[Rfam]
RNA: Enterobacterial sRNA STnc380
RNA sequence: UGAGUGGGUUGUGGUAACGGGUUAAAAUUGGUAGGGCCAAUUGAGGGGGGCGGGCAGCAAAGGGAAGUGAAAAGGCAAUGGCAUGAUGCCAUUGCCUUUGAUGUCGGG
Numbered sequence: 001u002g003a004g005u006g007g008g009u010u011g012u013g014g015u016a017a018c019g020g021g022u023u024a025a026a027a028u029u030g031g032u033a034g035g036g037c038c039a040a041u042u043g044a045g046g047g048g049g050g051c052g053g054g055c056a057g058c059a060a061a062g063g064g065a066a067g068u069g070a071a072a073a074g075g076c077a078a079u080g081g082c083a084u085g086a087u088g089c090c091a092u093u094g095c096c097u098u099u100g101a102u103g104u105c106g107g108g
Stems, first nucleotide, its partner, number of pairs: 008058002011055002022048002026042007064105002071099013